[Rfam]
RNA sequence: GCCUUUCCGGGGCCACAGCGCCCCGGCCUCAUUGAAAC
Numbered sequence: 001g002c003c004u005u006u007c008c009g010g011g012g013c014c015a016c017a018g019c020g021c022c023c024c025g026g027c028c029u030c031a032u033u034g035a036a037a038c
Stems, first nucleotide, its partner, number of pairs: 007026007

Shown here is a 38-nucleotide RNA from Oceanibacterium hippocampi, a member of the family "CRISPR RNA direct repeat element". Gene Ontology term of the family: defense response. The base pairs follow the family's consensus structure, which was predicted with WAR. Lineage of the source: Bacteria > Pseudomonadati > Alphaproteobacteria > Sneathiellaceae > Oceanibacterium.